[Rfam]
RNA sequence: UAACCGCUGGCGAAGUACGUGUACGUUA
Numbered sequence: 001u002a003a004c005c006g007c008u009g010g011c012g013a014a015g016u017a018c019g020u021g022u023a024c025g026u027u028a
Stems, first nucleotide, its partner, number of pairs: 001028004008023001010020003